[Rfam]
RNA sequence: UAAAUGCUAUGAAGCAGAAGGUUGCCACCCUUUAUUUGUGGGGAAUUUCUGUGGAGCAUAGUCCCACUUAAGGACAAGGAGGAGA
Numbered sequence: 001u002a003a004a005u006g007c008u009a010u011g012a013a014g015c016a017g018a019a020g021g022u023u024g025c026c027a028c029c030c031u032u033u034a035u036u037u038g039u040g041g042g043g044a045a046u047u048u049c050u051g052u053g054g055a056g057c058a059u060a061g062u063c064c065c066a067c068u069u070a071a072g073g074a075c076a077a078g079g080a081g082g083a084g085a
Base pairs, nucleotide, nucleotide: 014052015051016050019048020047021046025041026040027039028038062083063082064081068079069078
This 85-nucleotide RNA from Clostridium sp. 'deep sea' belongs to the Rfam family "S10-Clostridia ribosomal protein leader". It is annotated as a cis-regulatory leader. The organism belongs to Clostridium, within Bacteria.